[Rfam]
RNA: Bacterial RNase P class A
Organism: Flammeovirgaceae bacterium 311
RNA sequence: AACGCAAGCUGCCUUAUCGUUUGCGGCUCCACCUGGUGGAGCUGUGAGAGGAAAGUCCGGGCAACACAGAGCAUCCUGCUUCCUAACCGGAAGGGGCCGUUUGCACAAGCAAACGGCUACAGCCAGUGCCACAGAAAAUAUACCGCCCCAUGUAUAUGGGGUAAGGGUGAAAAGGUGCGGUAAGAGCGCACCGCUCUGGUAGUGAUACCAGGGGCAUGGUAAACCUCAGGAGUUGAAAGACCAAAUAGGUCCUUCUUUCCCGCCCUUUGGCGGGCUUCCCACCAAAGGGCGGGAAGAGAGUGCUCGCUCAAUUCCCGAUUUGUUUCGGGAGAGAGGGAUGGGUAGGUCGAUAGAGCCAGGUGGCAACGCCUGGCCCAGAUAAAUGAUAAGGAUACCGGAGCAAUCCGGGAAACAGAACCCGGCUUACAGGCUUGCGUUUACU
Numbered sequence: 001a002a003c004g005c006a007a008g009c010u011g012c013c014u015u016a017u018c019g020u021u022u023g024c025g026g027c028u029c030c031a032c033c034u035g036g037u038g039g040a041g042c043u044g045u046g047a048g049a050g051g052a053a054a055g056u057c058c059g060g061g062c063a064a065c066a067c068a069g070a071g072c073a074u075c076c077u078g079c080u081u082c083c084u085a086a087c088c089g090g091a092a093g094g095g096g097c098c099g100u101u102u103g104c105a106c107a108a109g110c111a112a113a114c115g116g117c118u119a120c121a122g123c124c125a126g127u128g129c130c131a132c133a134g135a136a137a138a139u140a141u142a143c144c145g146c147c148c149c150a151u152g153u154a155u156a157u158g159g160g161g162u163a164a165g166g167g168u169g170a171a172a173a174g175g176u177g178c179g180g181u182a183a184g185a186g187c188g189c190a191c192c193g194c195u196c197u198g199g200u201a202g203u204g205a206u207a208c209c210a211g212g213g214g215c216a217u218g219g220u221a222a223a224c225c226u227c228a229g230g231a232g233u234u235g236a237a238a239g240a241c242c243a244a245a246u247a248g249g250u251c252c253u254u255c256u257u258u259c260c261c262g263c264c265c266u267u268u269g270g271c272g273g274g275c276u277u278c279c280c281a282c283c284a285a286a287g288g289g290c291g292g293g294a295a296g297a298g299a300g301u302g303c304u305c306g307c308u309c310a311a312u313u314c315c316c317g318a319u320u321u322g323u324u325u326c327g328g329g330a331g332a333g334a335g336g337g338a339u340g341g342g343u344a345g346g347u348c349g350a351u352a353g354a355g356c357c358a359g360g361u362g363g364c365a366a367c368g369c370c371u372g373g374c375c376c377a378g379a380u381a382a383a384u385g386a387u388a389a390g391g392a393u394a395c396c397g398g399a400g401c402a403a404u405c406c407g408g409g410a411a412a413c414a415g416a417a418c419c420c421g422g423c424u425u426a427c428a429g430g431c432u433u434g435c436g437u438u439u440a441c442u
Stems, first nucleotide, its partner, number of pairs: 001438010011427001012391007020048011053425003057422005062235004074231005079093005094120001095118010121226002126224002128220003143166002145162007174192006193215001194213008239348004249339014355374008